RNA sequence: AAAGCAUAAUGGAUCAGGUAGAACGGAAAAGUUUUACCGGGCUCUUAUGAGCAGCAGGAUUAUAAACCUGUGGGACCGUG
Dot-bracket structure: ........((((..(.((((((((......))))))))..((((....)))).(((((........)))))..).)))).
Rfam assigns this 80-nucleotide RNA from Thermincola carboxydiphila to the family "NiCo (Nickel/Cobalt) riboswitch aptamer". Pairs were carried over by alignment from the consensus structure, which is taken from published work. The literature on the family includes a 2015 paper in Mol Cell by Furukawa et al., "Bacterial riboswitches cooperatively bind Ni(2+) or Co(2+) ions and control expression of heavy metal transporters". Taxonomically the source falls in Thermincola carboxydiphila (Bacteria, Clostridia, Thermincolaceae, Thermincola). The sequence is in the family's curated seed alignment. Rfam links the family to the GO terms cobalt ion binding and metal ion homeostasis. The family is grouped with related families in Rfam's "NiCo_riboswitches".